[Rfam]
Shown here is a 153-nucleotide sequence from Nonomuraea maritima, a member of the family "c-di-AMP riboswitch aptamer (ydaO/yuaA leader)".
RNA sequence: ACGGGCGACACGCCCAAUCCCCGCGAGGGGAGCCGGGGAACCGCAGGUGGCCUCCCCCCAACGGCCACCCAACAGGGUCGACCCGACGACGUCGGCAGGGCUGCUCCGGCCCGGACCCGUCAGCUGACCCGGUAGGCGCCUACGAGAGGAGCU
Numbered sequence: 001a002c003g004g005g006c007g008a009c010a011c012g013c014c015c016a017a018u019c020c021c022c023g024c025g026a027g028g029g030g031a032g033c034c035g036g037g038g039a040a041c042c043g044c045a046g047g048u049g050g051c052c053u054c055c056c057c058c059c060a061a062c063g064g065c066c067a068c069c070c071a072a073c074a075g076g077g078u079c080g081a082c083c084c085g086a087c088g089a090c091g092u093c094g095g096c097a098g099g100g101c102u103g104c105u106c107c108g109g110c111c112c113g114g115a116c117c118c119g120u121c122a123g124c125u126g127a128c129c130c131g132g133u134a135g136g137c138g139c140c141u142a143c144g145a146g147a148g149g150a151g152c153u
Stems, first nucleotide, its partner, number of pairs: 011138004018031005032133006043073001075118003083095004098112004
The match comes from Rfam's covariance-model search (51 bits).